[Rfam]
This 108-nucleotide RNA from Fervidicella metallireducens belongs to the Rfam family "SAM riboswitch aptamer (S box leader)". A search with the family's covariance model found it, with a score of 96 bits. The family's consensus secondary structure is taken from published work. The organism belongs to Fervidicella metallireducens, within Bacteria. Its family is annotated with regulation of gene expression in the Gene Ontology.
RNA sequence: CCCUUAUCAAGAGAGGUGGAGGGACGGGCCCGAUGAAACCCGGCAACCGGUGGCAAAAGCUACUAUGGUGCCAAUUCCUGCAGAAUGUUAUAUUCUGGUAGAUGAGGA
Numbered sequence: 001c002c003c004u005u006a007u008c009a010a011g012a013g014a015g016g017u018g019g020a021g022g023g024a025c026g027g028g029c030c031c032g033a034u035g036a037a038a039c040c041c042g043g044c045a046a047c048c049g050g051u052g053g054c055a056a057a058a059g060c061u062a063c064u065a066u067g068g069u070g071c072c073a074a075u076u077c078c079u080g081c082a083g084a085a086u087g088u089u090a091u092a093u094u095c096u097g098g099u100a101g102a103u104g105a106g107g108a
Stems, first nucleotide, its partner, number of pairs: 002107007013041001015040003021031003025080004042072004047068002049064004076100001081097006